[Rfam]
RNA sequence: GGGAUGUGAUGAGUGGUUGGUUCUCGCAAUUAAAAAUGUGAGAAGGGUGUCCGCCCCAAAGCCUGGUUACGACAAACGGGCAUUCUCAUCUUAACCAAUCUGAUCCC
Numbered sequence: 001g002g003g004a005u006g007u008g009a010u011g012a013g014u015g016g017u018u019g020g021u022u023c024u025c026g027c028a029a030u031u032a033a034a035a036a037u038g039u040g041a042g043a044a045g046g047g048u049g050u051c052c053g054c055c056c057c058a059a060a061g062c063c064u065g066g067u068u069a070c071g072a073c074a075a076a077c078g079g080g081c082a083u084u085c086u087c088a089u090c091u092u093a094a095c096c097a098a099u100c101u102g103a104u105c106c107c
Stems, first nucleotide, its partner, number of pairs: 001107004014097005023042005044086008064078002067075001